[Rfam]
RNA sequence: AAGGCCCUACCGAUUCGAAGCCUUAGGUUCCACCUGGGAGGUUAGUAGAUGAGGCGGGGCCUA
Numbered sequence: 001a002a003g004g005c006c007c008u009a010c011c012g013a014u015u016c017g018a019a020g021c022c023u024u025a026g027g028u029u030c031c032a033c034c035u036g037g038g039a040g041g042u043u044a045g046u047a048g049a050u051g052a053g054g055c056g057g058g059g060c061c062u063a
Stems, first nucleotide, its partner, number of pairs: 002062007010054002015049002022038007
RNA: DUF3800-VIII RNA